[Rfam]
RNA sequence: AGGUAAUGCCUACCAGACCUUUAUCAUUGUAGGCACUCGGCCGUGCUGUGGGCGAUAUUCGCCUUAGACGUUAAUCGUCAAGGGUGCGGUGAUGAGGAGGGGUUAGAUGCCCC
Numbered sequence: 001a002g003g004u005a006a007u008g009c010c011u012a013c014c015a016g017a018c019c020u021u022u023a024u025c026a027u028u029g030u031a032g033g034c035a036c037u038c039g040g041c042c043g044u045g046c047u048g049u050g051g052g053c054g055a056u057a058u059u060c061g062c063c064u065u066a067g068a069c070g071u072u073a074a075u076c077g078u079c080a081a082g083g084g085u086g087c088g089g090u091g092a093u094g095a096g097g098a099g100g101g102g103u104u105a106g107a108u109g110c111c112c113c
Stems, first nucleotide, its partner, number of pairs: 001020004007035007036096004040090008050064006067079004099113005
RNA: epsC RNA
Organism: Paenibacillus sambharensis